Rfam assigns this 148-nucleotide RNA from Triticum aestivum to the family "MIR2118 microRNA precursor family".
Gene Ontology terms of the family: RISC complex and miRNA-mediated post-transcriptional gene silencing.
On this family, see Xue et al., Nucleic Acids Res 2009: "Characterization and expression profiles of miRNAs in rice seeds".
It scores 102 bits against the family's covariance model.
The family has 7 seed sequences and 2,377 matches in Rfam 15.1.
RNA sequence: GUGAGCUAGGAAGAGGGAGAAAUACUCUAAGAGCGGUGAGAAUGGGAACACGGAGGAAACCCUGACCAGAGGUGGAUAUCUGCCUCAGUGUUUCCCCUUGCCUCCCAUUCCUAUUGUUCUUAGGUUCUCCUUCCCCUUCCUUUUACCU
Numbered sequence: 001g002u003g004a005g006c007u008a009g010g011a012a013g014a015g016g017g018a019g020a021a022a023u024a025c026u027c028u029a030a031g032a033g034c035g036g037u038g039a040g041a042a043u044g045g046g047a048a049c050a051c052g053g054a055g056g057a058a059a060c061c062c063u064g065a066c067c068a069g070a071g072g073u074g075g076a077u078a079u080c081u082g083c084c085u086c087a088g089u090g091u092u093u094c095c096c097c098u099u100g101c102c103u104c105c106c107a108u109u110c111c112u113a114u115u116g117u118u119c120u121u122a123g124g125u126u127c128u129c130c131u132u133c134c135c136c137u138u139c140c141u142u143u144u145a146c147c148u
Stems, first nucleotide, its partner, number of pairs: 009139003013135001015133003022128001026124010037113002040110008049100002053096001055095006